Overview
This 46-nucleotide sequence from Cesiribacter andamanensis belongs to the Rfam family "Acido-Lenti-1 RNA". The base pairs follow the family's consensus structure, which is taken from published work. By type it is a small RNA. It scores 49 bits against the family's covariance model.
RNA sequence: CCCAGCCCUGACAGGCUGGGCUGAGAUAUGUCGCCCCGUUGGGGCU
Numbered sequence: 001c002c003c004a005g006c007c008c009u010g011a012c013a014g015g016c017u018g019g020g021c022u023g024a025g026a027u028a029u030g031u032c033g034c035c036c037c038g039u040u041g042g043g044g045c046u
Base pairs, nucleotide, nucleotide: 001020002019003018004017005016006015007014033045034044035043036042037041
About this RNA: Taxonomically the source falls in Cesiribacter andamanensis (Bacteria, Cytophagia, Cesiribacteraceae, Cesiribacter).